DUF805 RNA: a 69-nucleotide sequence from Rhodohalobacter sp. SW132. Pairs were carried over by alignment from the consensus structure, which is taken from published work. Rfam classes the family as a cis-regulatory element. The source organism's lineage runs through Bacteria, Pseudomonadati, Balneolia, Balneolaceae and Rhodohalobacter.
RNA sequence: GAUUAGUGGAGACCAGAGACCACUUAAAUAAACGGGGCGUAACUGAAAAGCCUUAAGAGUAAGACUAAU
Number, nucleotide and partner (000 for none) at each position: 001g000002a000003u000004u000005a000006g023007u022008g021009g020010a000011g000012a000013c000014c000015a000016g000017a000018g000019a000020c009021c008022a007023c006024u000025u000026a000027a000028a000029u000030a000031a000032a000033c000034g000035g000036g052037g051038c050039g000040u000041a000042a000043c063044u062045g000046a000047a000048a000049a000050g038051c037052c036053u000054u000055a000056a000057g000058a000059g000060u000061a000062a044063g043064a000065c000066u000067a000068a000069u000